[Rfam]
RNA sequence: GAUUUAUAAAGAAGUGGCGAGAGACAGGCUCUGAGACCCACUGGCAACCCUCCCAAAUGGAGAAGGUGCCAAUUCCUGACCAAAAGGCAUGGUGCCCUUUGGAAAGAUAAAUU
Number, nucleotide and partner (000 for none) at each position: 001g113002a112003u111004u110005u109006a108007u107008a000009a000010a000011g000012a000013a042014g041015u040016g039017g038018c000019g000020a000021g031022a030023g029024a000025c078026a077027g076028g075029c023030u022031c021032u000033g000034a000035g000036a000037c000038c017039c016040a015041c014042u013043g070044g069045c068046a067047a000048c066049c065050c062051u061052c060053c059054c000055a000056a000057a000058u000059g053060g052061a051062g050063a000064a000065g049066g048067u046068g045069c044070c043071a000072a000073u000074u105075c028076c027077u026078g025079a000080c102081c101082a100083a099084a098085a000086g000087g000088c000089a000090u000091g000092g000093u000094g000095c000096c000097c000098u084099u083100u082101g081102g080103a000104a000105a074106g000107a007108u006109a005110a004111a003112u002113u001
The family of this 113-nucleotide RNA from Pedobacter psychroterrae is "SAM riboswitch aptamer (S box leader)". A search with the family's covariance model found it, with a score of 74 bits.